[Rfam]
This 93-nucleotide RNA belongs to the Rfam family "Vault RNA".

RNA sequence: GUCAGCAACAGCUCAGCGGUUACUUCUCGAAAUACCACGGAAUUGUAAUUCUGAAAACCUUUCGGGGUUCGAAACCCGCGGGCGCCACCUGAC
Numbered sequence: 001g002u003c004a005g006c007a008a009c010a011g012c013u014c015a016g017c018g019g020u021u022a023c024u025u026c027u028c029g030a031a032a033u034a035c036c037a038c039g040g041a042a043u044u045g046u047a048a049u050u051c052u053g054a055a056a057a058c059c060u061u062u063c064g065g066g067g068u069u070c071g072a073a074a075c076c077c078g079c080g081g082g083c084g085c086c087a088c089c090u091g092a093c
Base pairs, nucleotide, nucleotide: 001093002092003091004090005089011083012082013081014080016079017078018077019076024073025072026071

The literature on the family includes a 2009 paper in Mol Biol Evol by Stadler et al., "Evolution of Vault RNAs". It is annotated as a non-coding RNA gene. The base pairs follow the family's consensus structure, which is taken from published work.